[Rfam]
RNA sequence: UAGUAGAUGCACCCUGAUGGAUGAACCCUAACCAAUUGCGGCUAGGGUUUUUUAUU
Numbered sequence: 001u002a003g004u005a006g007a008u009g010c011a012c013c014c015u016g017a018u019g020g021a022u023g024a025a026c027c028c029u030a031a032c033c034a035a036u037u038g039c040g041g042c043u044a045g046g047g048u049u050u051u052u053u054a055u056u
Stems, first nucleotide, its partner, number of pairs: 003012002025048006032041002